[Rfam]
A member of the RNA family "Small nucleolar RNA SNORA77" from Prolemur simus, 113 nucleotides long. The literature on the family includes a 2006 paper in RNA by Schattner et al., "A computational screen for mammalian pseudouridylation guide H/ACA RNAs". Rfam describes the family as follows. ACA63 (SNORA77) is a member of the H/ACA class of snoRNAs that guide the sites of modification of uridines to pseudouridines. This snoRNA was identified by computational screening and its expression in mouse experimentally verified by Northern blot and primer extension analysis. ACA63 is proposed to guide the pseudouridylation of 18S rRNA U814. Lineage of the source: Eukaryota > Mammalia > Theria > Strepsirrhini > Prolemur. Rfam links the family to the GO terms nucleolus and RNA processing.

RNA sequence: GCAGAGUCACUCUGCACCAGGUGGGUGCUCUUUCUGUUUGCCAGAGAAACAUUCCAGGGCACUGUGGCCACAUUGACCUGUUAAGGGUGAUGCAGGUGCUCUGGGACACAGAG
Numbered sequence: 001g002c003a004g005a006g007u008c009a010c011u012c013u014g015c016a017c018c019a020g021g022u023g024g025g026u027g028c029u030c031u032u033u034c035u036g037u038u039u040g041c042c043a044g045a046g047a048a049a050c051a052u053u054c055c056a057g058g059g060c061a062c063u064g065u066g067g068c069c070a071c072a073u074u075g076a077c078c079u080g081u082u083a084a085g086g087g088u089g090a091u092g093c094a095g096g097u098g099c100u101c102u103g104g105g106a107c108a109c110a111g112a113g
Stems, first nucleotide, its partner, number of pairs: 001041005014028005054104007062095005069089003073085001